Shown here is a 92-nucleotide sequence from Geothermobacter ehrlichii, a member of the family "Selenocysteine transfer RNA".
RNA sequence: GGGAGUAGCUCGCGGCCUGGUGGCGCGCCCGGUCUUCAAAACCGGUGUGGGGCGUAUCCCGUCCCGGGUGGGUUCGAUUCCCAUCUACUCCC
Numbered sequence: 001g002g003g004a005g006u007a008g009c010u011c012g013c014g015g016c017c018u019g020g021u022g023g024c025g026c027g028c029c030c031g032g033u034c035u036u037c038a039a040a041a042c043c044g045g046u047g048u049g050g051g052g053c054g055u056a057u058c059c060c061g062u063c064c065c066g067g068g069u070g071g072g073u074u075c076g077a078u079u080c081c082c083a084u085c086u087a088c089u090c091c092c
Base pairs, nucleotide, nucleotide: 001092002091003090004089005088006087007086008085011027012026013025015024016023017022029045030044031043032042033041048066049065050064051063052062069083070082071081072080
Dot-bracket structure: ((((((((..(((.(((....)))))).(((((.......)))))..(((((.........)))))..((((.......)))).))))))))
The family is grouped with related families in Rfam's "tRNA clan".
Pairs were carried over by alignment from the consensus structure, which is taken from published work.
NCBI's taxonomy places the organism under Bacteria, Pseudomonadati, Desulfuromonadia, Geothermobacteraceae, Geothermobacter.
The match comes from Rfam's covariance-model search (76 bits).